The family of this 95-nucleotide sequence from Geoalkalibacter ferrihydriticus is "atoC RNA".
[Rfam]
Nucleotides: 095
Base pairs, nucleotide, nucleotide: 032051033050034049035048036047037046038045056089057088058087059086060085061084062083066080067079068078
Number, partner (000 for none) and nucleotide at each position: 001000a002000g003000u004000a005000u006000a007000a008000u009000a010000a011000a012000a013000a014000c015000a016000a017000a018000c019000a020000a021000a022000g023000a024000a025000g026000a027000u028000u029000u030000g031000c032051g033050a034049a035048g036047g037046c038045c039000g040000c041000c042000u043000a044000u045038g046037g047036c048035c049034u050033u051032c052000u053000u054000u055000u056089g057088c058087c059086c060085u061084g062083g063000a064000c065000a066080g067079c068078u069000u070000u071000c072000c073000c074000u075000c076000c077000u078068a079067g080066u081000g082000u083062c084061c085060g086059g087058g088057g089056u090000u091000u092000u093000u094000u095000u
About this RNA:
It scores 60 bits against the family's covariance model.